[Rfam]
RNA: mir-31 microRNA precursor family
Nucleotides: 080
Stems, first nucleotide, its partner, number of pairs: 005075001008072004013067004019061003024056008
Number, partner (000 for none) and nucleotide at each position: 001000a002000c003000c004000u005075g006000a007000u008072g009071a010070g011069a012000a013067g014066g015065c016064a017000a018000g019061a020060u021059g022000u023000u024056g025055g026054c027053a028052u029051a030050g031049c032000u033000g034000u035000u036000g037000g038000u039000u040000u041000u042000u043000g044000g045000a046000c047000c048000u049031g050030c051029u052028a053027u054026g055025c056024c057000u058000a059021c060020a061019u062000a063000c064016u065015g066014c067013c068000a069011u070010c071009u072008u073000u074000c075005c076000u077000g078000u079000c080000u